[Rfam]
RNA sequence: AGAUAAAAACAUAAAUCACUUCGUAUAAUUUGGAAAUAUGGUCCAAAGUUUCUACCGACUACCGUCAAUAGUCUGGCUACGGAGUUUAGCGCGUAUGCA
Numbered sequence: 001a002g003a004u005a006a007a008a009a010c011a012u013a014a015a016u017c018a019c020u021u022c023g024u025a026u027a028a029u030u031u032g033g034a035a036a037u038a039u040g041g042u043c044c045a046a047a048g049u050u051u052c053u054a055c056c057g058a059c060u061a062c063c064g065u066c067a068a069u070a071g072u073c074u075g076g077c078u079a080c081g082g083a084g085u086u087u088a089g090c091g092c093g094u095a096u097g098c099a
Stems, first nucleotide, its partner, number of pairs: 018085008029047006056075001057073005
Purine riboswitch aptamer: a 99-nucleotide sequence from Fusibacter sp. A1. Taxonomically the source falls in Fusibacter (Bacteria, Bacillati, Clostridia, Fusibacteraceae). Its family is annotated with purine nucleobase biosynthetic process in the Gene Ontology. The base pairs follow the family's consensus structure, which is taken from published work. The match comes from Rfam's covariance-model search (68 bits).